[Rfam]
RNA sequence: UAAUUGAUAUUUAAUUUCCUGUAGGCUGUCCUGGCAAAUGUUAAUCAAGUGACAGAAAAUUCCUUACAAAUUUUAAUGUAUUAAUAACUGAAAUUA
Numbered sequence: 001u002a003a004u005u006g007a008u009a010u011u012u013a014a015u016u017u018c019c020u021g022u023a024g025g026c027u028g029u030c031c032u033g034g035c036a037a038a039u040g041u042u043a044a045u046c047a048a049g050u051g052a053c054a055g056a057a058a059a060u061u062c063c064u065u066a067c068a069a070a071u072u073u074u075a076a077u078g079u080a081u082u083a084a085u086a087a088c089u090g091a092a093a094u095u096a
Base pairs, nucleotide, nucleotide: 001096002095003094004093005092026055027054028053029052030051032047033046034045
RNA: Small nucleolar RNA SNORD116